[Rfam]
A member of the RNA family "Small nucleolar RNA snoR97" from Lathyrus oleraceus, 105 nucleotides long. Its family is annotated with RNA processing and nucleolus in the Gene Ontology. The family's consensus secondary structure was predicted with WAR. By type it is an H/ACA-box small nucleolar RNA.

RNA sequence: AUCCUUUAGUUUGUUCAGAGUCUAAAAAACUCAAAUAUUGUUGUGUUGUCGUCAACUUCAUCUCUUGUUUUCCCCCAAGAUGGGAGUUGUCGCGCCACGAAAAAU
Dot-bracket structure: .........................................((((.((.....((((((.(((..............)))..))))))....)).))))......